[Rfam]
RNA sequence: AAUUUCGGGUAAUCGCGGCAUAUUUUUAUAUGCUGAGGAAAGUCCAGGCUUGCACAGACUGCGAUGUCUGUAGUGAUCGUACUCACUGAAAAAAUAAGGUGGGGCACCAUUUUGGUGACGGCGGAUAAAAGAGCUAAGGCUUAGCUAAGCUUGAGUAGUCCUGAAAAGUGCCACAGUGACGAAGCUGCUUUGGAAACAAAGCAGGUGGAACGCGGUAAACCCUGCGAGCAGGUAACCCAAACUUUGGUAGGGGCGCUUCAAGGCGGAAAUGAACAAACCUUGGGGGCAAGUAGAAAUACUUGGAGAUAGAUGAUUACCACGUUGAUUAGCCGACCUGGGCUAGUUGACGUACGGAACUUGGCUUAUAGAG
Number, nucleotide and partner (000 for none) at each position: 001a000002a000003u000004u370005u369006c368007g366008g318009g317010u316011a315012a314013u313014c312015g000016c035017g034018g033019c032020a031021u030022a000023u000024u000025u000026u000027u000028a000029u000030a021031u020032g019033c018034u017035g016036a000037g000038g000039a000040a364041a363042g362043u000044c361045c360046a359047g358048g357049c232050u231051u230052g229053c228054a071055c070056a069057g068058a067059c066060u000061g000062c000063g000064a000065u000066g059067u058068c057069u056070g055071u054072a000073g000074u000075g000076a000077u227078c226079g225080u224081a223082c103083u102084c101085a100086c099087u098088g000089a000090a000091a000092a000093a000094a000095u000096a000097a000098g087099g086100u085101g084102g083103g082104g119105c117106a116107c115108c114109a113110u000111u000112u000113u109114g108115g107116u106117g105118a000119c104120g222121g221122c000123g161124g160125a159126u158127a000128a000129a000130a000131g152132a151133g150134c149135u000136a000137a000138g146139g145140c144141u000142u000143a000144g140145c139146u138147a000148a000149g134150c133151u132152u131153g000154a000155g000156u000157a000158g126159u125160c124161c123162u000163g000164a000165a000166a000167a000168g220169u219170g216171c215172c214173a000174c000175a000176g000177u000178g000179a000180c000181g000182a000183a000184g000185c204186u203187g202188c201189u200190u199191u198192g197193g000194a000195a000196a000197c192198a191199a190200a189201g188202c187203a186204g185205g000206u000207g000208g000209a000210a000211c000212g000213c000214g172215g171216u170217a000218a000219a169220c168221c121222c120223u081224g080225c079226g078227a077228g053229c052230a051231g050232g049233u000234a000235a000236c252237c251238c250239a000240a000241a000242c000243u000244u000245u000246g000247g000248u000249a000250g238251g237252g236253g000254c000255g000256c285257u284258u283259c282260a281261a280262g279263g000264c000265g000266g000267a000268a000269a000270u000271g000272a000273a000274c000275a000276a000277a000278c000279c262280u261281u260282g259283g258284g257285g256286g000287c302288a301289a300290g299291u298292a000293g000294a000295a000296a000297u000298a291299c290300u289301u288302g287303g000304a000305g000306a000307u000308a000309g000310a000311u000312g014313a013314u012315u011316a010317c009318c008319a000320c349321g348322u347323u346324g345325a344326u343327u342328a341329g340330c339331c338332g000333a000334c000335c000336u000337g000338g331339g330340c329341u328342a327343g326344u325345u324346g323347a322348c321349g320350u000351a000352c000353g000354g000355a000356a000357c048358u047359u046360g045361g044362c042363u041364u040365a000366u007367a000368g006369a005370g004

A member of the RNA family "Bacterial RNase P class B" from Ligilactobacillus equi, 370 nucleotides long. The match comes from Rfam's covariance-model search (323 bits).